Shown here is an 89-nucleotide sequence, a member of the family "SAM riboswitch aptamer (S box leader)". A reference for the family is Grundy and Henkin (1998), "The S box regulon: a new global transcription termination control system for methionine and cysteine biosynthesis genes in gram-positive bacteria", Mol Microbiol. Rfam's curators write: The SAM riboswitch is found upstream of a number of genes which code for proteins involved in methionine or cysteine biosynthesis in Gram-positive bacteria. The base pairs follow the family's consensus structure, which is taken from published work.

RNA sequence: CGCUCAUCGAGAGCGGCUGAGGGACGGGCCCUAUGAAGCCGCGGCAACCAACGCUUAUGCGUCAGGUGCCAAUGCCCGAACGAUGAGCA
Number, nucleotide and partner (000 for none) at each position: 001c000002g088003c087004u086005c085006a084007u083008c082009g000010a000011g000012a000013g042014c041015g040016g039017c038018u000019g000020a000021g031022g030023g029024a000025c078026g077027g076028g075029c023030c022031c021032u000033a000034u000035g000036a000037a000038g017039c016040c015041g014042c013043g070044g069045c068046a067047a000048c066049c065050a000051a062052c061053g060054c059055u000056u000057a000058u000059g054060c053061g052062u051063c000064a000065g049066g048067u046068g045069c044070c043071a000072a000073u000074g081075c028076c027077c026078g025079a000080a000081c074082g008083a007084u006085g005086a004087g003088c002089a000